The family of this 81-nucleotide part of an RNA is "Bacterial large subunit ribosomal RNA". The family's consensus secondary structure is taken from published work. A search with the family's covariance model found it, with a score of 2533 bits.
[Rfam]
RNA sequence: AGUUGGAGCUCUAUGUUUUUCCUAUGAGAGUGAUCUUAUAGUGAUUUGCAUUAGGGUGACAGCGUACCUUUUGCAUAAUGG
Number, nucleotide and partner (000 for none) at each position: 001a000002g063003u062004u061005g060006g000007a000008g057009c056010u055011c054012u053013a000014u000015g000016u000017u000018u000019u000020u000021c000022c000023u000024a000025u000026g000027a000028g000029a000030g000031u000032g000033a000034u000035c000036u000037u000038a000039u000040a000041g000042u000043g000044a000045u000046u000047u000048g000049c000050a000051u000052u000053a012054g011055g010056g009057u008058g000059a000060c005061a004062g003063c002064g000065u000066a000067c080068c000069u078070u000071u000072u000073g000074c000075a000076u000077a000078a069079u000080g067081g000